[Rfam]
RNA sequence: GCUUUUGCCGUAUAUUCGCCGAAGACAGCAGGUACCCACGGGUGUAAGCGUUGCGCCUGCCGAGGAAGAUAAGAUUGACAGUAUGUGAAUUCUUAUGCCCCCUGUACGUCUUUGCGUACAGGGGUUUUAUUUCAUAGGA
Number, nucleotide and partner (000 for none) at each position: 001g000002c000003u000004u000005u000006u000007g000008c000009c000010g000011u000012a000013u000014a000015u000016u000017c000018g000019c000020c000021g000022a000023a000024g000025a000026c000027a000028g060029c059030a058031g057032g056033u055034a043035c042036c041037c000038a000039c000040g000041g036042g035043u034044g000045u000046a000047a000048g000049c000050g000051u000052u000053g000054c000055g033056c032057c031058u030059g029060c028061c000062g000063a000064g000065g000066a000067a000068g000069a000070u000071a000072a000073g000074a000075u000076u000077g000078a000079c000080a000081g000082u000083a000084u000085g000086u000087g000088a000089a000090u000091u000092c000093u000094u000095a000096u000097g000098c000099c124100c123101c122102c121103u120104g119105u118106a117107c116108g115109u000110c000111u000112u000113u000114g000115c108116g107117u106118a105119c104120a103121g102122g101123g100124g099125u000126u000127u000128u000129a000130u000131u000132u000133c000134a000135u000136a000137g000138g000139a000
Rfam assigns this 139-nucleotide RNA from Qiania dongpingensis to the family "Ribosomal protein L10 leader".
Gene Ontology term of the family: regulation of gene expression.
Rfam classes the family as a cis-regulatory leader.
This family is a putative r-protein leader autoregulatory structure found in B. subtilis and other low-GC Gram-positive bacteria. It is located in the 5' untranslated regions of mRNAs encoding ribosomal proteins L10 and L12 (rplJ-rplL). A Rho-independent transcription terminator structure that is probably involved in regulation is included at the 3' end.
A search with the family's covariance model found it, with a score of 65 bits.